[Rfam]
RNA sequence: GGGUGUUCGUACCAAUUCCGGUACGGCAGGAUGCGCGAUGGUCGGGCCGCCACG
Numbered sequence: 001g002g003g004u005g006u007u008c009g010u011a012c013c014a015a016u017u018c019c020g021g022u023a024c025g026g027c028a029g030g031a032u033g034c035g036c037g038a039u040g041g042u043c044g045g046g047c048c049g050c051c052a053c054g
Stems, first nucleotide, its partner, number of pairs: 005027002008025005036054002039052004
Annotation:
The family of this 54-nucleotide sequence from Massilia sp. BSC265 is "nhaA-I RNA". Acidobacteria, Alphaproteobacteria, Betaproteobacteria and Gammaproteobacteria, Verrucomicrobia, cand. division NC10. The match comes from Rfam's covariance-model search (45 bits). Lineage of the source: Bacteria > Pseudomonadati > Pseudomonadota > Burkholderiales > Massilia. The family's RNA type in Rfam is riboswitch.